Rfam assigns this 66-nucleotide sequence from Leptotrichia hofstadii to the family "S4-Fusobacteriales ribosomal protein leader". The literature on the family includes a 2020 paper in BMC Microbiol by Eckert and Weinberg, "Discovery of 20 novel ribosomal leader candidates in bacteria and archaea". A search with the family's covariance model found it, with a score of 66 bits. Lineage of the source: Bacteria > Fusobacteriota > Leptotrichiaceae > Leptotrichia > Leptotrichia hofstadii.

[Rfam]
RNA sequence: UUGUAAAGGUAUGUUUAGCUGUAGAGCUUAUUCCUUAUAUUAUGUAUGUGAGGGCAUAUUGAAGAA
Numbered sequence: 001u002u003g004u005a006a007a008g009g010u011a012u013g014u015u016u017a018g019c020u021g022u023a024g025a026g027c028u029u030a031u032u033c034c035u036u037a038u039a040u041u042a043u044g045u046a047u048g049u050g051a052g053g054g055c056a057u058a059u060u061g062a063a064g065a066a
Base pairs, nucleotide, nucleotide: 008060009059010058011057012056013055014030018027019026020025033053034052035051036050037049038048039047040046
By type it is a cis-regulatory leader.